Notes: This 43-nucleotide RNA sequence from Planomicrobium sp. YIM 101495 belongs to the Rfam family "Ribosomal protein L19 leader". About the family: This family is a putative r-protein leader autoregulatory structure found in B. subtilis and other low-GC Gram-positive bacteria.
[Rfam]
RNA sequence: ACGGUGUUCCGCUGCGGCCAUAGAAUGCGUGCAAGAGCAUCUG
Number, nucleotide and partner (000 for none) at each position: 001a000002c000003g041004g040005u039006g038007u037008u036009c035010c000011g000012c000013u033014g032015c000016g000017g028018c027019c000020a000021u000022a000023g000024a000025a000026u000027g018028c017029g000030u000031g000032c014033a013034a000035g009036a008037g007038c006039a005040u004041c003042u000043g000